[Rfam]
RNA sequence: CGAGGGUUGGAAUCACGAUGUUGUGGCCCCGCUAGCGUUGAACUGGUGAUCACGGGGAUCUCCAUACACCAGUCGGUAUAGCCAUCAAAGUCUGAAAGUAGGCCGCCUGGGGUGCUCACCUUAGCCAGGUGCUCCGAAUUUUAUGAGGACGAUGAUGCUGCACGCCGUGGAGGGGUAAGCUGAGUUAGGCAGCUUAGAAUGUGCAGACGCCG
Numbered sequence: 001c002g003a004g005g006g007u008u009g010g011a012a013u014c015a016c017g018a019u020g021u022u023g024u025g026g027c028c029c030c031g032c033u034a035g036c037g038u039u040g041a042a043c044u045g046g047u048g049a050u051c052a053c054g055g056g057g058a059u060c061u062c063c064a065u066a067c068a069c070c071a072g073u074c075g076g077u078a079u080a081g082c083c084a085u086c087a088a089a090g091u092c093u094g095a096a097a098g099u100a101g102g103c104c105g106c107c108u109g110g111g112g113u114g115c116u117c118a119c120c121u122u123a124g125c126c127a128g129g130u131g132c133u134c135c136g137a138a139u140u141u142u143a144u145g146a147g148g149a150c151g152a153u154g155a156u157g158c159u160g161c162a163c164g165c166c167g168u169g170g171a172g173g174g175g176u177a178a179g180c181u182g183a184g185u186u187a188g189g190c191a192g193c194u195u196a197g198a199a200u201g202u203g204c205a206g207a208c209g210c211c212g
Base pairs, nucleotide, nucleotide: 001031002030004029005028006027007026042073043072044071045070046069047068061171062170063169064168065167083157084156085155086154087153090150091149092148093147158206159205160204161203162202163201176196177195178194179193180192181191
A member of the RNA family "PAGEV RNA", 212 nucleotides long.